Rfam assigns this 66-nucleotide RNA sequence to the family "GP20-b RNA".
Pairs were carried over by alignment from the consensus structure, which is taken from published work.
It is one of the family's seed sequences.
By type it is a cis-regulatory element.
RNA sequence: GGUCAGAUGAUCAGACCUAAAAUAGUCAGCUAUCUGGUGGAUGGUUACACACCUAUAAAUAACCUA
Numbered sequence: 001g002g003u004c005a006g007a008u009g010a011u012c013a014g015a016c017c018u019a020a021a022a023u024a025g026u027c028a029g030c031u032a033u034c035u036g037g038u039g040g041a042u043g044g045u046u047a048c049a050c051a052c053c054u055a056u057a058a059a060u061a062a063c064c065u066a
Stems, first nucleotide, its partner, number of pairs: 001017004009027003013023001036053004